[Rfam]
RNA sequence: UAGGGCGAUCCGCUGACGUAGAACGCAUUAUUUUAAUAUAGUGUCAAAAUAACCUUGAAAAAUUGAGGGAUGACCUCAUUUAAUCUCCAGUAGCAAUUUUGACCAAUAUUGGAGGUGUUAUGCGUCUGGAUCGUCUUAC
Numbered sequence: 001u002a003g004g005g006c007g008a009u010c011c012g013c014u015g016a017c018g019u020a021g022a023a024c025g026c027a028u029u030a031u032u033u034u035a036a037u038a039u040a041g042u043g044u045c046a047a048a049a050u051a052a053c054c055u056u057g058a059a060a061a062a063u064u065g066a067g068g069g070a071u072g073a074c075c076u077c078a079u080u081u082a083a084u085c086u087c088c089a090g091u092a093g094c095a096a097u098u099u100u101g102a103c104c105a106a107u108a109u110u111g112g113a114g115g116u117g118u119u120a121u122g123c124g125u126c127u128g129g130a131u132c133g134u135c136u137u138a139c
Stems, first nucleotide, its partner, number of pairs: 002137011015126006022119003025044007053068006069080004083116010
The family of this 139-nucleotide RNA from Yersinia pseudotuberculosis is "Yersinia sRNA 155(RyfD)". It is one of the family's seed sequences. From the family's description: The sRNA was identified by and is confirmed to have a stable secondary structure by using genome-wide structure probing at different temperatures. The function is unknown. The source organism's lineage runs through Bacteria, Enterobacterales, Yersiniaceae, Yersinia and Yersinia pseudotuberculosis. The pairing is the family consensus, mapped onto this sequence. Rfam classes the family as a small RNA.